[Rfam]
RNA sequence: GUGUCAAUGAUGAGAUCUUUUCACUGCUGUAGAGAGGUGAUAACUUAAAAAUCAUGCUCAAUAGGAUUACACUGAAGCCC
Numbered sequence: 001g002u003g004u005c006a007a008u009g010a011u012g013a014g015a016u017c018u019u020u021u022c023a024c025u026g027c028u029g030u031a032g033a034g035a036g037g038u039g040a041u042a043a044c045u046u047a048a049a050a051a052u053c054a055u056g057c058u059c060a061a062u063a064g065g066a067u068u069a070c071a072c073u074g075a076a077g078c079c080c
Stems, first nucleotide, its partner, number of pairs: 001080001003078002005074002008071002
Shown here is an 80-nucleotide RNA from Carlito syrichta, a member of the family "Small nucleolar RNA SNORD115". The family has 32 seed sequences and 3,387 matches in Rfam 15.1. Taxonomically the source falls in Carlito (Eukaryota, Deuterostomia, Sarcopterygii, Tarsiiformes). By type it is a C/D-box small nucleolar RNA. The family's consensus secondary structure was predicted with PFOLD.